RNA sequence: AUACUUAUCGGGCGGGGUCAAUGGGCAAUCAACAAGGCUCAUGGCCUAGGUUAGUGACCUCCAUUGCACUCGGAGGGCCCUCGCCUAAGGUCGGCCCAAGUGGUCGAGCCUACGUCAUAAUUUGUGGCAGCGGGGGCCUGCGUUCGCGCGGCCCCUAC
Numbered sequence: 001a002u003a004c005u006u007a008u009c010g011g012g013c014g015g016g017g018u019c020a021a022u023g024g025g026c027a028a029u030c031a032a033c034a035a036g037g038c039u040c041a042u043g044g045c046c047u048a049g050g051u052u053a054g055u056g057a058c059c060u061c062c063a064u065u066g067c068a069c070u071c072g073g074a075g076g077g078c079c080c081u082c083g084c085c086u087a088a089g090g091u092c093g094g095c096c097c098a099a100g101u102g103g104u105c106g107a108g109c110c111u112a113c114g115u116c117a118u119a120a121u122u123u124g125u126g127g128c129a130g131c132g133g134g135g136g137c138c139u140g141c142g143u144u145c146g147c148g149c150g151g152c153c154c155c156u157a158c
Base pairs, nucleotide, nucleotide: 011116012115013114014113015047016046017045018044019043020042022041023040024039025038026037048086049085050084052083054080056078058076059075060074061073062072088111089110090109091107092106093105095103096102132156133155134154135153139150140149141148142147
Source information: The record is a 158-nucleotide RNA from Anisodus acutangulus, which matches "U1 spliceosomal RNA" in Rfam. The match comes from Rfam's covariance-model search (121 bits). The family's consensus secondary structure is taken from published work. Rfam classes the family as a spliceosomal small nuclear RNA.